[Rfam]
RNA sequence: GCCACUGCGGGAGGCAGGGGAGCCUGGGGCUCAACCAGCGCAGCGUCGAUCCGGUCGCCAAUCCGAUGUGCUGGGCCAAUGGCGAGACCGACCCGCGGAGCG
Numbered sequence: 001g002c003c004a005c006u007g008c009g010g011g012a013g014g015c016a017g018g019g020g021a022g023c024c025u026g027g028g029g030c031u032c033a034a035c036c037a038g039c040g041c042a043g044c045g046u047c048g049a050u051c052c053g054g055u056c057g058c059c060a061a062u063c064c065g066a067u068g069u070g071c072u073g074g075g076c077c078a079a080u081g082g083c084g085a086g087a088c089c090g091a092c093c094c095g096c097g098g099a100g101c102g
Stems, first nucleotide, its partner, number of pairs: 003100001005098007013077003022071002025068002029064001053089002055085005
Dot-bracket structure: ..(.(((((((.[[[......[[.[[..[.......................(((((((....]..]].]]...]]]...)))))..))..))))))).)..

c-di-GMP-II-GAG riboswitch aptamer: a 102-nucleotide sequence. The literature on the family includes a 2017 paper in Proc Natl Acad Sci U S A by Weinberg et al., "Bioinformatic analysis of riboswitch structures uncovers variant classes with altered ligand specificity".